[Rfam]
RNA sequence: AAAUGAUAAAGGCAAACUUGUCGAAAGGCAAGGACGCAAAGCCAUGGGUCUAAGGUUUGUGUAACUAUGAUUGCCAGGCUGCCAUU
Number, nucleotide and partner (000 for none) at each position: 001a000002a000003a000004u000005g000006a000007u000008a000009a000010a000011g000012g037013c036014a000015a000016a000017c032018u031019u030020g029021u028022c027023g000024a000025a000026a000027g022028g021029c020030a019031a018032g017033g000034a000035c000036g013037c012038a000039a000040a080041g079042c078043c077044a000045u076046g075047g074048g071049u070050c069051u000052a000053a000054g000055g065056u064057u063058u000059g000060u000061g000062u000063a057064a056065c055066u000067a000068u000069g050070a049071u048072u000073g000074c047075c046076a045077g043078g042079c041080u040081g000082c000083c000084a000085u000086u000